[Rfam]
RNA sequence: UGUGACGCACGAGCUUUUGGCUCGGGUUAUACCUGGCGCUCGCGUAUAAGACGAGCAAAAAGCUUGUUGGUCAGAGG
Numbered sequence: 001u002g003u004g005a006c007g008c009a010c011g012a013g014c015u016u017u018u019g020g021c022u023c024g025g026g027u028u029a030u031a032c033c034u035g036g037c038g039c040u041c042g043c044g045u046a047u048a049a050g051a052c053g054a055g056c057a058a059a060a061a062g063c064u065u066g067u068u069g070g071u072c073a074g075a076g077g
Base pairs, nucleotide, nucleotide: 003073004072005071006070009067011065012064013063014062015061016060017059018058020056023053024052027049028048029047030046031045032044
The record is a 77-nucleotide RNA sequence from Ursus americanus, which matches "mir-208 microRNA precursor family" in Rfam. The source organism's lineage runs through Eukaryota, Opisthokonta, Vertebrata, Carnivora and Ursus. Rfam links the family to the GO terms RISC complex and miRNA-mediated post-transcriptional gene silencing. Pairs were carried over by alignment from the consensus structure, which was predicted with RNAalifold.